[Rfam]
RNA sequence: CGGCCGAAGCGGGGGUGCCCGGGCGCAGCCUGGGCUGAGACAGACCCUUCGAACCUGAUCCGGCUCGCACCGGCGUAGGGAAGCUUCGCGGUGCCGGUC
Number, nucleotide and partner (000 for none) at each position: 001c000002g000003g000004c000005c000006g087007a086008a085009g084010c083011g048012g047013g046014g045015g000016u042017g035018c034019c033020c032021g031022g030023g029024c000025g000026c000027a000028g000029c023030c022031u021032g020033g019034g018035c017036u000037g000038a000039g000040a000041c000042a016043g000044a000045c014046c013047c012048u011049u000050c000051g000052a000053a000054c079055c078056u077057g076058a000059u000060c073061c072062g071063g070064c000065u000066c000067g000068c000069a000070c063071c062072g061073g060074c000075g000076u057077a056078g055079g054080g000081a000082a000083g010084c009085u008086u007087c006088g000089c000090g000091g000092u000093g000094c000095c000096g000097g000098u000099c000